RNA sequence: UUAAGUUAAUUACAUAAAAUAGGUCAUCUCCUUUAAUUUUACGCAUCAACCUCAAGUAGCAAAUGUCUUGAGAUUUUAUGGUUUAUUGAGAUGAAUGCUUAUAAUUAAAGGAGAUGACAAAUUUUAUGUGGUUCACUUAACU
Dot-bracket structure: ((((((.(((((((((((((..(((..(((((((((((.((.((((..(.((((................................)))).)..)))).)).)))))))))))..)))..))))))))))))).))))))..
MIR7993 microRNA precursor family: a 142-nucleotide RNA from Anisodus acutangulus. The match comes from Rfam's covariance-model search (104 bits).